[Rfam]
RNA sequence: UGCAGAGUAGAACAUUAUGCGUUAAGUGCCGUAUGAACAGGGAGUUGUCAUAUGGACGAAAAGCAUCCGAAAGGUUUCGCUUGCGGUAUAAGGUUCGCAUCCCGCUGCU
Numbered sequence: 001u002g003c004a005g006a007g008u009a010g011a012a013c014a015u016u017a018u019g020c021g022u023u024a025a026g027u028g029c030c031g032u033a034u035g036a037a038c039a040g041g042g043a044g045u046u047g048u049c050a051u052a053u054g055g056a057c058g059a060a061a062a063g064c065a066u067c068c069g070a071a072a073g074g075u076u077u078c079g080c081u082u083g084c085g086g087u088a089u090a091a092g093g094u095u096c097g098c099a100u101c102c103c104g105c106u107g108c109u
Stems, first nucleotide, its partner, number of pairs: 002108004010096004015091005020085003026057002029055008040102003044098001061082004

Source information: The record is a 109-nucleotide RNA from Roseburia sp. CAG:100, which matches "THF (Tetrahydrofolate) riboswitch aptamer" in Rfam. Tetrahydrofolate (THF) riboswitch was first reported for Ames et al. as an RNA motif in 5' untranslated (5'-UTR)regions of folate transport and biosynthesis genes in Firmicutes genomes. Lineage of the source: Bacteria > Bacillati > Bacillota > Lachnospiraceae > Roseburia.